[Rfam]
RNA sequence: AAUUAAUUUGUUUCAAUCUUUCCUGUUAUGAUUAAAGCAAAUUAAACCGUAACUAGGAUGCUUGCUGAGAUUCACUCCGAGCAUCCUAGUUUUUUU
Numbered sequence: 001a002a003u004u005a006a007u008u009u010g011u012u013u014c015a016a017u018c019u020u021u022c023c024u025g026u027u028a029u030g031a032u033u034a035a036a037g038c039a040a041a042u043u044a045a046a047c048c049g050u051a052a053c054u055a056g057g058a059u060g061c062u063u064g065c066u067g068a069g070a071u072u073c074a075c076u077c078c079g080a081g082c083a084u085c086c087u088a089g090u091u092u093u094u095u096u
Stems, first nucleotide, its partner, number of pairs: 003045011015033004051091014067077003

A member of the RNA family "23S methyl RNA motif" from Floricoccus tropicus, 96 nucleotides long. Rfam classes the family as a cis-regulatory element. For this family Rfam cites "Identification of 22 candidate structured RNAs in bacteria using the CMfinder comparative genomics pipeline" (Weinberg et al., Nucleic Acids Res, 2007). It scores 81 bits against the family's covariance model.